A member of the RNA family "RT-2 RNA", 225 nucleotides long.

[Rfam]
RNA sequence: AACGGCCAGACCGAGUAGGGACAUGCCCGAAAGCAGAGCCUGUAGAGGAAGGAAGGCGUGACGUUCGGGCUUGGGCCCGUGAAUCUGCACCCCGCGAGGGAUGGCGGACGCUGCUUGCAUGGCGGCGCGCUUCGGCGUUCAGCGCCGUUUCAUGCCAUCUUCUCAUGCGGAUACCGAACGCUGCGCUGCAAUCCGUGCGGGGUGCCUUUUGAAAUCCGAGGAACG
Dot-bracket structure: ...(((............((.....))..........))).........................((((......)))).......((((((((..(((((((((....((.....))..(((((((...............)))))))....))))).))))...(((((..(..........)......))))).))))))))....................